Source information
Rfam assigns this 122-nucleotide RNA sequence from Paenalicyclobacillus mengziensis to the family "c-di-AMP riboswitch aptamer (ydaO/yuaA leader)". It scores 82 bits against the family's covariance model. NCBI's taxonomy places the organism under Bacteria, Bacillati, Bacillota, Alicyclobacillaceae, Paenalicyclobacillus.

[Rfam]
RNA sequence: UACAAGUAAACGCCGAAUCGCAUGAGCGGGGGAUAUUCGAAAUCAGGGGUGAAGGAAUCUUCCAGGGCCACCUUUUCGGCCCGAACCCGUCAACUAACCUCGUAGGCGUAACGAAAGGGAGA
Numbered sequence: 001u002a003c004a005a006g007u008a009a010a011c012g013c014c015g016a017a018u019c020g021c022a023u024g025a026g027c028g029g030g031g032g033a034u035a036u037u038c039g040a041a042a043u044c045a046g047g048g049g050u051g052a053a054g055g056a057a058u059c060u061u062c063c064a065g066g067g068c069c070a071c072c073u074u075u076u077c078g079g080c081c082c083g084a085a086c087c088c089g090u091c092a093a094c095u096a097a098c099c100u101c102g103u104a105g106g107c108g109u110a111a112c113g114a115a116a117g118g119g120a121g122a
Stems, first nucleotide, its partner, number of pairs: 011108004018025002026103006036046002047088003055062002065082004